RNA sequence: GUGGGAUAUGGGGACAUUUAUCCAAAGACAUUGUUAGGCAAGAUAGUUGGCGGUCUCUGCUGCAUUGCUGGAGUGCUGGUCAUUGCACUCCCUAUCCCUAUCAUUGUAAACAAC
Numbered sequence: 001g002u003g004g005g006a007u008a009u010g011g012g013g014a015c016a017u018u019u020a021u022c023c024a025a026a027g028a029c030a031u032u033g034u035u036a037g038g039c040a041a042g043a044u045a046g047u048u049g050g051c052g053g054u055c056u057c058u059g060c061u062g063c064a065u066u067g068c069u070g071g072a073g074u075g076c077u078g079g080u081c082a083u084u085g086c087a088c089u090c091c092c093u094a095u096c097c098c099u100a101u102c103a104u105u106g107u108a109a110a111c112a113a114c
Stems, first nucleotide, its partner, number of pairs: 001114002004111001007108005013102002016099001020095002037077004049063001
Annotation: Potassium channel RNA editing signal: a 114-nucleotide RNA sequence from Ameiurus melas. On this family, see Bhalla et al., Nat Struct Mol Biol 2004: "Control of human potassium channel inactivation by editing of a small mRNA hairpin". It scores 91 bits against the family's covariance model.